[Rfam]
RNA sequence: GGUGGAGAAUUCCAAAGGGAUCGCAUUGAUUUGAAAAUUUUAACGAGAGUUUUUCGUUUAUAAUUUUCCGAUCAUGCGAUCCCUUAGGAAUUCUCCAU
Number, nucleotide and partner (000 for none) at each position: 001g000002g098003u097004g096005g095006a094007g000008a092009a091010u090011u089012c088013c087014a000015a085016a084017g083018g082019g081020a080021u079022c000023g077024c076025a075026u074027u000028g073029a072030u071031u070032u000033g000034a000035a000036a066037a000038u000039u000040u000041u000042a000043a000044c000045g000046a000047g000048a000049g000050u000051u000052u000053u000054u000055c000056g000057u000058u000059u000060a000061u000062a000063a000064u000065u000066u036067u000068c000069c000070g031071a030072u029073c028074a026075u025076g024077c023078g000079a021080u020081c019082c018083c017084u016085u015086a000087g013088g012089a011090a010091u009092u008093c000094u006095c005096c004097a003098u002

This 98-nucleotide sequence from Striga asiatica belongs to the Rfam family "mir-393 microRNA precursor family". On this family, see Kruszka et al., J Plant Physiol 2012: "Role of microRNAs and other sRNAs of plants in their changing environments". The match comes from Rfam's covariance-model search (83 bits). The organism belongs to Striga, within Eukaryota. Rfam links the family to the GO terms RISC complex and miRNA-mediated post-transcriptional gene silencing.